[Rfam]
RNA sequence: ACGGGAGUCGGGCGGACGUGGCAUUCGCCAACCCGGUCAGGUCCUGACGGAAGCAGCCGUAACGAUAUUCGCUGCGGGUCGUCCGGCUCCUACUUU
Numbered sequence: 001a002c003g004g005g006a007g008u009c010g011g012g013c014g015g016a017c018g019u020g021g022c023a024u025u026c027g028c029c030a031a032c033c034c035g036g037u038c039a040g041g042u043c044c045u046g047a048c049g050g051a052a053g054c055a056g057c058c059g060u061a062a063c064g065a066u067a068u069u070c071g072c073u074g075c076g077g078g079u080c081g082u083c084c085g086g087c088u089c090c091u092a093c094u095u096u
Stems, first nucleotide, its partner, number of pairs: 004090011017076006025065003034059004042051003
RNA: Bacterial small signal recognition particle RNA
Organism: Novosphingopyxis sp. YJ-S2-01